[Rfam]
RNA: Group II catalytic intron D1-D4-5
Organism: Candidatus Epulonipiscioides saccharophilum
RNA sequence: AAGAACUAAUAAUCUGAACAAUCAAAUGAUAGGGUAACGCCUUGAAAGGUUGUCCAUAAUACUCCGAAUAGCGAUAGUAAGGUAAAAUACUAAACGUUAUAAGCUCGGUGAAGUCGGCUGAGAGCAUACCCAAGUACUAGGUAAAAUUAGAAAACGGAAAAGUGAACCAGAGGUGGUCAAGUAUGUGAUAGGUCGGUGGUCCAAAAC
Numbered sequence: 001a002a003g004a005a006c007u008a009a010u011a012a013u014c015u016g017a018a019c020a021a022u023c024a025a026a027u028g029a030u031a032g033g034g035u036a037a038c039g040c041c042u043u044g045a046a047a048g049g050u051u052g053u054c055c056a057u058a059a060u061a062c063u064c065c066g067a068a069u070a071g072c073g074a075u076a077g078u079a080a081g082g083u084a085a086a087a088u089a090c091u092a093a094a095c096g097u098u099a100u101a102a103g104c105u106c107g108g109u110g111a112a113g114u115c116g117g118c119u120g121a122g123a124g125c126a127u128a129c130c131c132a133a134g135u136a137c138u139a140g141g142u143a144a145a146a147u148u149a150g151a152a153a154a155c156g157g158a159a160a161a162g163u164g165a166a167c168c169a170g171a172g173g174u175g176g177u178c179a180a181g182u183a184u185g186u187g188a189u190a191g192g193u194c195g196g197u198g199g200u201c202c203a204a205a206a207c
Stems, first nucleotide, its partner, number of pairs: 018053006031043004054199004064108004068100006075092003079088001115195005124186006130157002138152001163179002166177004